The family of this 169-nucleotide sequence from Thermasporomyces composti is "SAM riboswitch aptamer (S box leader)".
Nucleotides: 169
Base pairs, nucleotide, nucleotide: 003167004166005165006164007163008162013042014041015040016039017038021031022030023029025115026114027113028112043107044106045105046104048103049102050099052097053096111161116158117157118156119155120154121153122152123151
Number, partner (000 for none) and nucleotide at each position: 001000g002000a003167c004166u005165c006164a007163u008162c009000c010000a011000g012000a013042g014041g015040g016039g017038c018000u019000g020000a021031g022030g023029g024000a025115c026114c027113g028112g029023c030022c031021c032000g033000a034000u035000g036000a037000a038017g039016c040015c041014c042013c043107g044106g045105c046104a047000a048103c049102c050099g051000g052097c053096c054000g055000a056000c057000c058000g059000c060000c061000g062000a063000c064000g065000c066000g067000c068000g069000u070000c071000u072000c073000g074000c075000g076000u077000u078000c079000a080000u081000c082000a083000g084000a085000g086000g087000c088000c089000c090000c091000g092000c093000g094000g095000c096053g097052g098000a099050c100000a101000c102049g103048g104046u105045g106044c107043c108000a109000a110000u111161u112028c113027c114026g115025g116158c117157u118156c119155g120154c121153g122152u123151c124000a125000c126000c127000c128000g129000c130000g131000c132000c133000a134000g135000a136000c137000c138000c139000u140000g141000g142000c143000a144000c145000g146000g147000a148000c149000u150000c151123g152122a153121c154120g155119u156118g157117a158116g159000a160000a161111a162008g163007a164006u165005g166004a167003g168000g169000a

Rfam describes the family as follows. The SAM riboswitch is found upstream of a number of genes which code for proteins involved in methionine or cysteine biosynthesis in Gram-positive bacteria. Gene Ontology term of the family: regulation of gene expression. It scores 70 bits against the family's covariance model.